mir-9230 microRNA precursor family: an 87-nucleotide RNA from Myotis myotis. Pairs were carried over by alignment from the consensus structure, which was predicted with RNAalifold. Rfam links the family to the GO terms miRNA-mediated post-transcriptional gene silencing and RISC complex.
RNA sequence: CCAACUGCUCUGAACUCCAGUUCCAGGUGAGUAUCUGGGGAUCCAGACUCACAUGGGGAGAAACUGGACUGUCUGGCAUCAGUCGGA
Numbered sequence: 001c002c003a004a005c006u007g008c009u010c011u012g013a014a015c016u017c018c019a020g021u022u023c024c025a026g027g028u029g030a031g032u033a034u035c036u037g038g039g040g041a042u043c044c045a046g047a048c049u050c051a052c053a054u055g056g057g058g059a060g061a062a063a064c065u066g067g068a069c070u071g072u073c074u075g076g077c078a079u080c081a082g083u084c085g086g087a
Base pairs, nucleotide, nucleotide: 001086002085005082006081007080009078010076011075012074014072015071016068017067018066019065020064021063022059023058024057027052028051029050030049031048034047035046036045037044038043